[Rfam]
RNA: T-box leader
RNA sequence: GCAAAUGCAGUGAAAAAGAGGAGUACCUCUUACAGCCUGUCUUUUAGAGAGCGAACCAUCUGGUGCAAGGUUUGCAGGCAGGGAAGAGGGAAGGUCGCUUUGGAGCUGGAAUAUUGAAAUUCAGUAAAUAUUCCCGGGACGUCCCGUUAUCGGCGAAAAGUGCGCAGAACUGCUGCGAAUUUAGGUGGUACCACGGAAAUCUACGGUUUUCGUCCUAUUG
Numbered sequence: 001g002c003a004a005a006u007g008c009a010g011u012g013a014a015a016a017a018g019a020g021g022a023g024u025a026c027c028u029c030u031u032a033c034a035g036c037c038u039g040u041c042u043u044u045u046a047g048a049g050a051g052c053g054a055a056c057c058a059u060c061u062g063g064u065g066c067a068a069g070g071u072u073u074g075c076a077g078g079c080a081g082g083g084a085a086g087a088g089g090g091a092a093g094g095u096c097g098c099u100u101u102g103g104a105g106c107u108g109g110a111a112u113a114u115u116g117a118a119a120u121u122c123a124g125u126a127a128a129u130a131u132u133c134c135c136g137g138g139a140c141g142u143c144c145c146g147u148u149a150u151c152g153g154c155g156a157a158a159a160g161u162g163c164g165c166a167g168a169a170c171u172g173c174u175g176c177g178a179a180u181u182u183a184g185g186u187g188g189u190a191c192c193a194c195g196g197a198a199a200u201c202u203a204c205g206g207u208u209u210u211c212g213u214c215c216u217a218u219u220g
Stems, first nucleotide, its partner, number of pairs: 007106002015101004026089006040078003051075006109133007135146003163177005182217004193213008